[Rfam]
RNA: Bacterial large subunit ribosomal RNA, nucleotides 1310 to 1689
Organism: Acetivibrio saccincola
RNA sequence: GAGAGUAAAGUGAGAAUCUUUACCGUCGAAAGCCUAAGGUUUCCUGGGGAAGGUUCGUCCGCCCAGGGUAAGUCGGGACCUAAGCUGAGGCCGGAAGGCGUAGGCGAUGGGGAACAGGUUGAAAUUCCUGUACUACCGCUGUUCGUUAAGAGAAGUGGGGACGCAGGGGGAUAGGUUAAGCGAGCGGCUGGAAGAGCUCGUCCAAGGGAGGUAGAUAGGCCGGUAGGCAAAUCCGCCGGUUGUUUCGAAGUCCUGAUGGGGAGGGAAAUAUAAGUACCGAAGUAACUGAUUCCGCACUGACAAGAAAAGCCACUAUCGAGAGCAGAGGUACCCGUACCGCAAACCGACACAGGUAGGUGAGGAGAGAAUCCUAAGACGAG
Numbered sequence: 001g002a003g004a005g006u007a008a009a010g011u012g013a014g015a016a017u018c019u020u021u022a023c024c025g026u027c028g029a030a031a032g033c034c035u036a037a038g039g040u041u042u043c044c045u046g047g048g049g050a051a052g053g054u055u056c057g058u059c060c061g062c063c064c065a066g067g068g069u070a071a072g073u074c075g076g077g078a079c080c081u082a083a084g085c086u087g088a089g090g091c092c093g094g095a096a097g098g099c100g101u102a103g104g105c106g107a108u109g110g111g112g113a114a115c116a117g118g119u120u121g122a123a124a125u126u127c128c129u130g131u132a133c134u135a136c137c138g139c140u141g142u143u144c145g146u147u148a149a150g151a152g153a154a155g156u157g158g159g160g161a162c163g164c165a166g167g168g169g170g171a172u173a174g175g176u177u178a179a180g181c182g183a184g185c186g187g188c189u190g191g192a193a194g195a196g197c198u199c200g201u202c203c204a205a206g207g208g209a210g211g212u213a214g215a216u217a218g219g220c221c222g223g224u225a226g227g228c229a230a231a232u233c234c235g236c237c238g239g240u241u242g243u244u245u246c247g248a249a250g251u252c253c254u255g256a257u258g259g260g261g262a263g264g265g266a267a268a269u270a271u272a273a274g275u276a277c278c279g280a281a282g283u284a285a286c287u288g289a290u291u292c293c294g295c296a297c298u299g300a301c302a303a304g305a306a307a308a309g310c311c312a313c314u315a316u317c318g319a320g321a322g323c324a325g326a327g328g329u330a331c332c333c334g335u336a337c338c339g340c341a342a343a344c345c346g347a348c349a350c351a352g353g354u355a356g357g358u359g360a361g362g363a364g365a366g367a368a369u370c371c372u373a374a375g376a377c378g379a380g
Base pairs, nucleotide, nucleotide: 005023006022007021008020009019010018024378025377026376027375032358033357034356035355038338039337043067044066045065046064047063048062052060053059074334075333076332077331079110080109084105085104086103088101090099091098092097114131115130116129117128118127134330135329136328137327139325140324141323142322143321144320150317151316154314155313156312157311158310164299165298166297169293170292171291174287175286176285177284178283180201181200182199183198184197185196202259203258206254207253208252209251214246215245218241219240220239221238222237223236224235226234227233263278264277266275344353345352360372361371362370363369